[Rfam]
Description:
The family of this 91-nucleotide RNA from Acaryochloris marina is "Glutamine riboswitch aptamer (glnA leader)". Taxonomically the source falls in Acaryochloris marina (Bacteria, Cyanobacteriota, Cyanophyceae, Acaryochloridales). It is one of the family's seed sequences. Rfam links the family to the GO term glutamine binding. For this family Rfam cites "Bacterial aptamers that selectively bind glutamine" (Ames and Breaker, RNA Biol, 2011).

RNA sequence: AUCGUUCAUCUUGCAUCGCUUGUCUGUUUGAUUCCUGAUCAAAGGUGAGUCAGCAAGACGGAAGUAAGGCAUUUACCUGAAGGAACGCGCC
Number, nucleotide and partner (000 for none) at each position: 001a000002u000003c087004g086005u085006u084007c083008a000009u058010c057011u056012u055013g054014c000015a000016u000017c000018g000019c000020u000021u000022g000023u000024c000025u000026g000027u000028u000029u000030g000031a000032u000033u000034c000035c000036u000037g000038a000039u000040c000041a000042a000043a000044g000045g000046u000047g000048a000049g000050u000051c000052a000053g000054c013055a012056a011057g010058a009059c000060g000061g088062a000063a000064g000065u000066a000067a078068g077069g076070c000071a000072u000073u000074u000075a000076c069077c068078u067079g000080a000081a000082g000083g007084a006085a005086c004087g003088c061089g000090c000091c000